[Rfam]
RNA: Fluoride riboswitch aptamer (crcB RNA motif)
Organism: Marinococcus luteus
RNA sequence: GGAAAAGAUGGCGAUGGAGUUCGCCGAAACCGCUCUCAAAAGAGCUGAUGACUCCUGUCUGUCC
Numbered sequence: 001g002g003a004a005a006a007g008a009u010g011g012c013g014a015u016g017g018a019g020u021u022c023g024c025c026g027a028a029a030c031c032g033c034u035c036u037c038a039a040a041a042g043a044g045c046u047g048a049u050g051a052c053u054c055c056u057g058u059c060u061g062u063c064c
Base pairs, nucleotide, nucleotide: 010025011024012023013022016055017054018053019052020051021050032045033044034043035042
Dot-bracket structure: .........[[[[..((((((]]]]......((((......))))....)))))).........